[Rfam]
RNA sequence: CACAUUCAUUACUGUAAGUCACUCUGGAUAAGAGCGUCUGCUAACUGACUGAAA
Numbered sequence: 001c002a003c004a005u006u007c008a009u010u011a012c013u014g015u016a017a018g019u020c021a022c023u024c025u026g027g028a029u030a031a032g033a034g035c036g037u038c039u040g041c042u043a044a045c046u047g048a049c050u051g052a053a054a
Base pairs, nucleotide, nucleotide: 013043014041015040016039020036022034023033024032025031
Dot-bracket structure: ............((((...(.((((.....)))).)..))).)...........
Rfam assigns this 54-nucleotide sequence from Salmo trutta to the family "UnaL2 LINE 3' element".
Taxonomically the source falls in Salmo (Eukaryota, Teleostomi, Teleostei, Salmoniformes).
The base pairs follow the family's consensus structure, which is taken from published work.
The family has 30 seed sequences and 493,311 matches in Rfam 15.1.
It is annotated as a cis-regulatory element.